A member of the RNA family "Mu-gpT-DE RNA", 53 nucleotides long.
The sequence is in the family's curated seed alignment.
The family's consensus secondary structure is taken from published work.

[Rfam]
RNA sequence: CCCUGACAGGUGCAUGAAGCGCCUGACUUAACCCAAGACAGGAGAUAAUCAUG
Numbered sequence: 001c002c003c004u005g006a007c008a009g010g011u012g013c014a015u016g017a018a019g020c021g022c023c024u025g026a027c028u029u030a031a032c033c034c035a036a037g038a039c040a041g042g043a044g045a046u047a048a049u050c051a052u053g
Base pairs, nucleotide, nucleotide: 002042003041004040005039007025008024009023010022011021